[Rfam]
RNA sequence: ACACGGGAAAGGAGGUGGUCCGAAGUUGAAUACUUUCAGGACGCGUGAGGUGGCUGCGGUCUAGCAGCAACCGGCCAGCUUCGUGCUCACCGAAGUGCUGCUGGCAAUCCCAACGCAGACACCCGACCCGCAGGUGAUCCAACCCACGUCCGGUUGGAGGGGCGCUCGGU
Numbered sequence: 001a002c003a004c005g006g007g008a009a010a011g012g013a014g015g016u017g018g019u020c021c022g023a024a025g026u027u028g029a030a031u032a033c034u035u036u037c038a039g040g041a042c043g044c045g046u047g048a049g050g051u052g053g054c055u056g057c058g059g060u061c062u063a064g065c066a067g068c069a070a071c072c073g074g075c076c077a078g079c080u081u082c083g084u085g086c087u088c089a090c091c092g093a094a095g096u097g098c099u100g101c102u103g104g105c106a107a108u109c110c111c112a113a114c115g116c117a118g119a120c121a122c123c124c125g126a127c128c129c130g131c132a133g134g135u136g137a138u139c140c141a142a143c144c145c146a147c148g149u150c151c152g153g154u155u156g157g158a159g160g161g162g163c164g165c166u167c168g169g170u
Stems, first nucleotide, its partner, number of pairs: 015057005059105001061104005067098003072092003131168001133166004138158006

Rfam assigns this 170-nucleotide sequence from Nocardioides islandensis to the family "Actinobacteria sRNA Ms_IGR-5". It is annotated as a small RNA. NCBI's taxonomy places the organism under Bacteria, Bacillati, Actinomycetota, Actinomycetes, Nocardioides. Pairs were carried over by alignment from the consensus structure. For this family Rfam cites "Identification of small RNAs in Mycobacterium smegmatis using heterologous Hfq" (Li et al., RNA, 2013). The match comes from Rfam's covariance-model search (86 bits).